[Rfam]
RNA sequence: GGUGCUACACAGGCAUGUGGAAUAAGCGUUACGGACCCGGGGGCAGUACCCGGCGCCUCCACCAAAACCGCCCAGCACAUCACAAACCCGCGUUAUCAGGGUUGUGAGGUUGGCCGGGAUCGAGGGGGCGAAACAGGAUCGACGUGCGUGGUAAAGAUGUGUUUGGUACCCGGCAUGGUACCGCCGUUAUCGGGCCGAAACUAUAGUUGCAAAUGACAACGAUAGUGGGCUUGCCGUCGCCGCUUAA
Dot-bracket structure: (((((.........((((........(((.(((...(((((.......)))))(((((((...............................................................)))))))............))))))........)))).....)))))((((........)))).............................................................
Numbered sequence: 001g002g003u004g005c006u007a008c009a010c011a012g013g014c015a016u017g018u019g020g021a022a023u024a025a026g027c028g029u030u031a032c033g034g035a036c037c038c039g040g041g042g043g044c045a046g047u048a049c050c051c052g053g054c055g056c057c058u059c060c061a062c063c064a065a066a067a068c069c070g071c072c073c074a075g076c077a078c079a080u081c082a083c084a085a086a087c088c089c090g091c092g093u094u095a096u097c098a099g100g101g102u103u104g105u106g107a108g109g110u111u112g113g114c115c116g117g118g119a120u121c122g123a124g125g126g127g128g129c130g131a132a133a134c135a136g137g138a139u140c141g142a143c144g145u146g147c148g149u150g151g152u153a154a155a156g157a158u159g160u161g162u163u164u165g166g167u168a169c170c171c172g173g174c175a176u177g178g179u180a181c182c183g184c185c186g187u188u189a190u191c192g193g194g195c196c197g198a199a200a201c202u203a204u205a206g207u208u209g210c211a212a213a214u215g216a217c218a219a220c221g222a223u224a225g226u227g228g229g230c231u232u233g234c235c236g237u238c239g240c241c242g243c244u245u246a247a
Stems, first nucleotide, its partner, number of pairs: 001170005015160004027148003031145003037053005054130007171186004

Rfam assigns this 247-nucleotide RNA from Denitrobaculum tricleocarpae to the family "permuted transfer-messenger RNA". The source organism's lineage runs through Bacteria, Pseudomonadati, Alphaproteobacteria, Rhodospirillaceae and Denitrobaculum. The family's RNA type in Rfam is non-coding RNA gene. A search with the family's covariance model found it, with a score of 149 bits.